[Rfam]
RNA sequence: AGUUAACUUAAUGUGAUUGCCUAUAUAAUACCAAGAUGAGGUUGGUUAGUGUCUACCCGAACCCGUAAAGUUCGGACUAUAAGCAUUAAGGCCGUUGUC
Numbered sequence: 001a002g003u004u005a006a007c008u009u010a011a012u013g014u015g016a017u018u019g020c021c022u023a024u025a026u027a028a029u030a031c032c033a034a035g036a037u038g039a040g041g042u043u044g045g046u047u048a049g050u051g052u053c054u055a056c057c058c059g060a061a062c063c064c065g066u067a068a069a070g071u072u073c074g075g076a077c078u079a080u081a082a083g084c085a086u087u088a089a090g091g092c093c094g095u096u097g098u099c
Base pairs, nucleotide, nucleotide: 018085019084020083022081023080024079025078029048030046031045032044033043034042057075058074059073060072061071062070
The family of this 99-nucleotide RNA from Acetilactobacillus jinshanensis is "Purine riboswitch aptamer". The match comes from Rfam's covariance-model search (60 bits).